[Rfam]
RNA sequence: GCAUUGCUCUCGGGGUGCCCCGGUUUAAUGGCAACAUUAGAUUGGAAGCUGAGAUGUGUUUUAACACAAACCCGUAGAACCUGAUCCGGUUAGUAUCGGCGUAGGGAUGAGUAAGGCUUAUUCA
Numbered sequence: 001g002c003a004u005u006g007c008u009c010u011c012g013g014g015g016u017g018c019c020c021c022g023g024u025u026u027a028a029u030g031g032c033a034a035c036a037u038u039a040g041a042u043u044g045g046a047a048g049c050u051g052a053g054a055u056g057u058g059u060u061u062u063a064a065c066a067c068a069a070a071c072c073c074g075u076a077g078a079a080c081c082u083g084a085u086c087c088g089g090u091u092a093g094u095a096u097c098g099g100c101g102u103a104g105g106g107a108u109g110a111g112u113a114a115g116g117c118u119u120a121u122u123c124a
Stems, first nucleotide, its partner, number of pairs: 006112004011074004016068001017049002021045001056067004080105004086099004